[Rfam]
RNA: M-box riboswitch aptamer (ykoK leader)
RNA sequence: CAUUAAUUAUGUUAGGUGAGGCUCCUAUUGAGAUAAACGCUGCUGCCCAGAAAUGUCGAGAGACGCCAAUGCGGUUAACAGAUAUAAUCGAGAAGGUUAUAUUUAAUGCAGCUGACUUCGAAAGGUCAAAGCUCUCUAGUGCUAAAGCUCAACAUAGAAGGAUUAUU
Numbered sequence: 001c002a003u004u005a006a007u008u009a010u011g012u013u014a015g016g017u018g019a020g021g022c023u024c025c026u027a028u029u030g031a032g033a034u035a036a037a038c039g040c041u042g043c044u045g046c047c048c049a050g051a052a053a054u055g056u057c058g059a060g061a062g063a064c065g066c067c068a069a070u071g072c073g074g075u076u077a078a079c080a081g082a083u084a085u086a087a088u089c090g091a092g093a094a095g096g097u098u099a100u101a102u103u104u105a106a107u108g109c110a111g112c113u114g115a116c117u118u119c120g121a122a123a124g125g126u127c128a129a130a131g132c133u134c135u136c137u138a139g140u141g142c143u144a145a146a147g148c149u150c151a152a153c154a155u156a157g158a159a160g161g162a163u164u165a166u167u
Base pairs, nucleotide, nucleotide: 005164006163007162008161010159011153012152013094015149016148017147020143021142022141025139026138027137030134031133032132039112040111041110042109043108046073048071049070054065055064056063057062081103082102083101084100087097088096089095114127115126116125